The record is a 417-nucleotide sequence from Litorivita pollutaquae, which matches "Bacterial RNase P class A" in Rfam.
RNA sequence: GCGGAGGGCUGGAUGGUCGCGGGCGGGCCUGAUCCGUUCGAGGAAAGUCCGGACUCCACAAAACGAUGGUGCCGGGUAACGCCCGGCUGGGGCAACCCAAGGGAAAGCGCCACAGAGAACAGACCGCCGUUGCGCCCGUAUGGGAUCAACGCAACGGUAAGGGUGAAACGGUGGAGUAAGAGCCCACCGCGGGACUGGCAACAGGACCGGCACGGCAAGCCCCACCAGGAGCAAUGCCAAAUAGGGACCGCGCGCGGGGAUCGCGUCGGCGUAAGCCGAUACCGCCCGCAGGGAUGUUUUGCCCCGGUGGUCCGGGUUGGCAGCUAGAGGCGUCAUGGCAACAUGGGGCCAAGAUGAAUGAUCAUCCAUGAAGGGCAACCUUCGGGACAAAAUCCGGCUUAUAGGCCCUCCGCGCGU
Numbered sequence: 001g002c003g004g005a006g007g008g009c010u011g012g013a014u015g016g017u018c019g020c021g022g023g024c025g026g027g028c029c030u031g032a033u034c035c036g037u038u039c040g041a042g043g044a045a046a047g048u049c050c051g052g053a054c055u056c057c058a059c060a061a062a063a064c065g066a067u068g069g070u071g072c073c074g075g076g077u078a079a080c081g082c083c084c085g086g087c088u089g090g091g092g093c094a095a096c097c098c099a100a101g102g103g104a105a106a107g108c109g110c111c112a113c114a115g116a117g118a119a120c121a122g123a124c125c126g127c128c129g130u131u132g133c134g135c136c137c138g139u140a141u142g143g144g145a146u147c148a149a150c151g152c153a154a155c156g157g158u159a160a161g162g163g164u165g166a167a168a169c170g171g172u173g174g175a176g177u178a179a180g181a182g183c184c185c186a187c188c189g190c191g192g193g194a195c196u197g198g199c200a201a202c203a204g205g206a207c208c209g210g211c212a213c214g215g216c217a218a219g220c221c222c223c224a225c226c227a228g229g230a231g232c233a234a235u236g237c238c239a240a241a242u243a244g245g246g247a248c249c250g251c252g253c254g255c256g257g258g259g260a261u262c263g264c265g266u267c268g269g270c271g272u273a274a275g276c277c278g279a280u281a282c283c284g285c286c287c288g289c290a291g292g293g294a295u296g297u298u299u300u301g302c303c304c305c306g307g308u309g310g311u312c313c314g315g316g317u318u319g320g321c322a323g324c325u326a327g328a329g330g331c332g333u334c335a336u337g338g339c340a341a342c343a344u345g346g347g348g349c350c351a352a353g354a355u356g357a358a359u360g361a362u363c364a365u366c367c368a369u370g371a372a373g374g375g376c377a378a379c380c381u382u383c384g385g386g387a388c389a390a391a392a393u394c395c396g397g398c399u400u401a402u403a404g405g406c407c408c409u410c411c412g413c414g415c416g417u
Stems, first nucleotide, its partner, number of pairs: 001413010011402001012366007020040008045400003049397005054231004062300002065297001067227005072086005087101001088099004102222002107220002109216003124162002126158009170188005189211001190209003195204003235322004245313006291305003295301001330349002333346005

Background
Taxonomically the source falls in Litorivita (Bacteria, Pseudomonadati, Rhodobacterales, Paracoccaceae). It is annotated as a ribozyme.